[Rfam]
RNA sequence: AUAUACACUGAGUGGCCUGAUUAUUAUGAUUCCUGGACCCAUAAUAAUCUGGCCACUCAGUGUGUGU
Number, nucleotide and partner (000 for none) at each position: 001a000002u000003a000004u064005a063006c062007a061008c060009u059010g058011a057012g056013u055014g054015g053016c052017c051018u000019g049020a048021u047022u046023a045024u044025u043026a042027u041028g040029a000030u000031u000032c000033c000034u000035g000036g000037a000038c000039c000040c028041a027042u026043a025044a024045u023046a022047a021048u020049c019050u000051g017052g016053c015054c014055a013056c012057u011058c010059a009060g008061u007062g006063u005064g004065u000066g000067u000
RNA: mir-9256 microRNA precursor family